[Rfam]
RNA sequence: CAGCGGGCCACCUCUCCCCAACGAGAGGCGUGCUAUCUGAAAGGGUAGAAACA
Number, nucleotide and partner (000 for none) at each position: 001c000002a000003g000004c000005g000006g000007g000008c000009c000010a000011c028012c027013u026014c025015u024016c023017c000018c000019c000020a000021a000022c000023g016024a015025g014026a013027g012028g011029c000030g000031u000032g000033c048034u047035a046036u045037c044038u043039g000040a000041a000042a000043g038044g037045g036046u035047a034048g033049a000050a000051a000052c000053a000
A member of the RNA family "serC leader" from Neoaquamicrobium microcysteis, 53 nucleotides long. This family is a putative regulatory RNA structure that is found upstream of the serC-serA operon in some alpha-proteobacteria. Rfam links the family to the GO term regulation of gene expression. The pairing is the family consensus, mapped onto this sequence. A reference for the family is Corbino et al. (2005), "Evidence for a second class of S-adenosylmethionine riboswitches and other regulatory RNA motifs in alpha-proteobacteria", Genome Biol.